The record is a 94-nucleotide RNA sequence from Anopheles stephensi, which matches "mir-283 microRNA precursor family" in Rfam. Gene Ontology terms of the family: miRNA-mediated post-transcriptional gene silencing and RISC complex. It scores 73 bits against the family's covariance model. Its Rfam clan is "mir-216 clan". The base pairs follow the family's consensus structure, which was predicted with WAR.
RNA sequence: CGUUCGAUCGAAAGGUAAAUAUCAGCUGGUAAUUCUAGGCUAUCCCUACUUCGUGCAUCCCGGGAUUUCAGCUGAUAUCCACUUUACGGUCGAC
Numbered sequence: 001c002g003u004u005c006g007a008u009c010g011a012a013a014g015g016u017a018a019a020u021a022u023c024a025g026c027u028g029g030u031a032a033u034u035c036u037a038g039g040c041u042a043u044c045c046c047u048a049c050u051u052c053g054u055g056c057a058u059c060c061c062g063g064g065a066u067u068u069c070a071g072c073u074g075a076u077a078u079c080c081a082c083u084u085u086a087c088g089g090u091c092g093a094c
Stems, first nucleotide, its partner, number of pairs: 012085005019078011032066005038060002